[Rfam]
RNA sequence: UGACCACAAGACUUUGUGAUUGGGUCAAGGGCUGGGCUCUUGUCUGGUCCAUACCCAGGAAAGUCCCCGGGCCGUUAUUCUGCAGAGAUGCAGGCUUGGAAACAAGUCAACUUUGAGCGCGCGAGUCCAAUUUGCAAUCGUGCAAUGGGCUGAGACACGUGUGGAGCCCAUGGGCUCGCCCCAAAGUGUAUUGGCCGGCAACACAGUUAUUCACAAGGCCCAUUGGGCUAACUGAACGGGGCUUAGGAUCUUGUGGUC
Numbered sequence: 001u002g003a004c005c006a007c008a009a010g011a012c013u014u015u016g017u018g019a020u021u022g023g024g025u026c027a028a029g030g031g032c033u034g035g036g037c038u039c040u041u042g043u044c045u046g047g048u049c050c051a052u053a054c055c056c057a058g059g060a061a062a063g064u065c066c067c068c069g070g071g072c073c074g075u076u077a078u079u080c081u082g083c084a085g086a087g088a089u090g091c092a093g094g095c096u097u098g099g100a101a102a103c104a105a106g107u108c109a110a111c112u113u114u115g116a117g118c119g120c121g122c123g124a125g126u127c128c129a130a131u132u133u134g135c136a137a138u139c140g141u142g143c144a145a146u147g148g149g150c151u152g153a154g155a156c157a158c159g160u161g162u163g164g165a166g167c168c169c170a171u172g173g174g175c176u177c178g179c180c181c182c183a184a185a186g187u188g189u190a191u192u193g194g195c196c197g198g199c200a201a202c203a204c205a206g207u208u209a210u211u212c213a214c215a216a217g218g219c220c221c222a223u224u225g226g227g228c229u230a231a232c233u234g235a236a237c238g239g240g241g242c243u244u245a246g247g248a249u250c251u252u253g254u255g256g257u258c
Stems, first nucleotide, its partner, number of pairs: 002258010014216006022056004027041006061244003065241004081092004093108006110187003117181001119179003135174001147169004157162001218228004
Rfam assigns this 258-nucleotide RNA sequence from Actinidia chinensis to the family "RNase MRP".
Taxonomically the source falls in Actinidia chinensis (Eukaryota, Spermatophyta, Magnoliopsida, Gunneridae).
On this family, see Walker and Avis, Biochem Biophys Res Commun 2005: "Secondary structure probing of the human RNase MRP RNA reveals the potential for MRP RNA subsets".
Its Rfam clan is "RNaseP clan".
RNase MRP is an enzymatically active ribonucleoprotein with two distinct roles in eukaryotes. In mitochondria it plays a direct role in the initiation of mitochondrial DNA replication. In the nucleus it is involved in precursor rRNA processing, where it cleaves the internal transcribed spacer 1 between 18S and 5.8S rRNAs. Despite distinct functions, RNase MRP has been shown to be evolutionarily related to RNase P. Like eukaryotic RNase P, RNase MRP is not catalytically active without associated protein subunits.